Notes: A member of the RNA family "6S / SsrS RNA" from Marinobacterium marinum, 180 nucleotides long. Rfam describes the family as follows. E. coli 6S RNA was the first non coding RNA to be sequenced, but its function was unknown until recently. It consists of 184 nucleotides that fold into an extended hairpin structure with a large single-stranded internal bulge. The 6S RNA specifically associates with RNA polymerase holoenzyme containing the sigma70 specificity factor. This interaction represses expression from a sigma70-dependent promoter during stationary phase. 6S RNA homologs have recently been identified in most bacterial genomes. Many Gram-positive species have two copies of 6S RNA. In Bacillus subtilis, both copies appear to interact with RNA polymerase holoenzyme containing the housekeeping sigma factor and be expressed during different stages of growth. In many proteobacteria, 6S RNA may be processed from a transcript encoding homologs of the E. coli YgfA protein which is a putative 5-formyltetrahydrofolate cycloligase activity. Lineage of the source: Bacteria > Pseudomonadati > Gammaproteobacteria > Oceanospirillales > Marinobacterium. It scores 98 bits against the family's covariance model.

RNA sequence: AGGUUCCUGGAGUGUUCGGCAGUGGGUCAAGUCCCUCGAGCCGAUAAGCAGUACCCAGGAGGUGUUUAACAGGUGUUGUGAGCAUGUCCGUUCGACGGAAAGCCUGAUUCGCUUGUAAACACUUCCACUCUGAACCUUAGGGUUCAGGGCCACGACCGACACCGGCACUCUGGGAAGCCU
Numbered sequence: 001a002g003g004u005u006c007c008u009g010g011a012g013u014g015u016u017c018g019g020c021a022g023u024g025g026g027u028c029a030a031g032u033c034c035c036u037c038g039a040g041c042c043g044a045u046a047a048g049c050a051g052u053a054c055c056c057a058g059g060a061g062g063u064g065u066u067u068a069a070c071a072g073g074u075g076u077u078g079u080g081a082g083c084a085u086g087u088c089c090g091u092u093c094g095a096c097g098g099a100a101a102g103c104c105u106g107a108u109u110c111g112c113u114u115g116u117a118a119a120c121a122c123u124u125c126c127a128c129u130c131u132g133a134a135c136c137u138u139a140g141g142g143u144u145c146a147g148g149g150c151c152a153c154g155a156c157c158g159a160c161a162c163c164g165g166c167a168c169u170c171u172g173g174g175a176a177g178c179c180u
Stems, first nucleotide, its partner, number of pairs: 002178001004176012017164003033149003038145005058126003062122006069116007082103002087099004